[Rfam]
RNA sequence: UGUUGAUAUGAUGAUAACAUUUGCUGAAAAAAAAAGUGUUGCUAAAAAAAAAUCAGACUACAAUUAUCUGAUCCACG
Numbered sequence: 001u002g003u004u005g006a007u008a009u010g011a012u013g014a015u016a017a018c019a020u021u022u023g024c025u026g027a028a029a030a031a032a033a034a035a036g037u038g039u040u041g042c043u044a045a046a047a048a049a050a051a052a053u054c055a056g057a058c059u060a061c062a063a064u065u066a067u068c069u070g071a072u073c074c075a076c077g
Base pairs, nucleotide, nucleotide: 001077002076003075005073006072

The family of this 77-nucleotide RNA sequence from Cocos nucifera is "Small nucleolar RNA Z155". The match comes from Rfam's covariance-model search (58 bits). The source organism's lineage runs through Eukaryota, Viridiplantae, Liliopsida, Petrosaviidae and Cocos. The pairing is the family consensus, mapped onto this sequence.